[Rfam]
RNA sequence: CCCCUUUCCUUUUGGCGCGCAGGCCCUAUAUGCGGUCCUGCCGGUUUCGACCGGCUAUGGUGAUAAAGUGUGGCGUGCAAUAGAUGCAGCGGACCCGGGGGCGGUACCCGGCGGCUCCACCACCUGUUUCGUUUGCGAGAGCGGGGCAGAUGACGGGGCCGAACUAGGAUCGACGUGUAUUGAAAAGCGCUGCUUUUGCCCGGGCUGAGUAACCCGUUCAAGGCUCAAAACCCACAAGUGCCAACGAUAACGAAGCACUCGCUCUCGCCGCGUAAUCUGACGGCCUAACGGCCAGAUUUUACAAGGCGCAAGCGCGGUUGGACCCACCGGGCAACAGAAGGGAUACCA
Numbered sequence: 001c002c003c004c005u006u007u008c009c010u011u012u013u014g015g016c017g018c019g020c021a022g023g024c025c026c027u028a029u030a031u032g033c034g035g036u037c038c039u040g041c042c043g044g045u046u047u048c049g050a051c052c053g054g055c056u057a058u059g060g061u062g063a064u065a066a067a068g069u070g071u072g073g074c075g076u077g078c079a080a081u082a083g084a085u086g087c088a089g090c091g092g093a094c095c096c097g098g099g100g101g102c103g104g105u106a107c108c109c110g111g112c113g114g115c116u117c118c119a120c121c122a123c124c125u126g127u128u129u130c131g132u133u134u135g136c137g138a139g140a141g142c143g144g145g146g147c148a149g150a151u152g153a154c155g156g157g158g159c160c161g162a163a164c165u166a167g168g169a170u171c172g173a174c175g176u177g178u179a180u181u182g183a184a185a186a187g188c189g190c191u192g193c194u195u196u197u198g199c200c201c202g203g204g205c206u207g208a209g210u211a212a213c214c215c216g217u218u219c220a221a222g223g224c225u226c227a228a229a230a231c232c233c234a235c236a237a238g239u240g241c242c243a244a245c246g247a248u249a250a251c252g253a254a255g256c257a258c259u260c261g262c263u264c265u266c267g268c269c270g271c272g273u274a275a276u277c278u279g280a281c282g283g284c285c286u287a288a289c290g291g292c293c294a295g296a297u298u299u300u301a302c303a304a305g306g307c308g309c310a311a312g313c314g315c316g317g318u319u320g321g322a323c324c325c326a327c328c329g330g331g332c333a334a335c336a337g338a339a340g341g342g343a344u345a346c347c348a
Base pairs, nucleotide, nucleotide: 040055041054042053043052044051059200060199061198062197063196070193071192072191073190074189075188076187085179086178087177089176090175091174095111096110097109098108099107112161113160114159115158116157117156118155201216202215203214204213206227207226208225315329316328317327318326320346322344324342325341